[Rfam]
RNA sequence: GAAACGCGAACCAAGCAGACGCGGAAAGCGUCGUGAGACUUGGAGCUGACCUCGGUAACGAGGUCAUGUG
Numbered sequence: 001g002a003a004a005c006g007c008g009a010a011c012c013a014a015g016c017a018g019a020c021g022c023g024g025a026a027a028g029c030g031u032c033g034u035g036a037g038a039c040u041u042g043g044a045g046c047u048g049a050c051c052u053c054g055g056u057a058a059c060g061a062g063g064u065c066a067u068g069u070g
Stems, first nucleotide, its partner, number of pairs: 011043005018032005047066008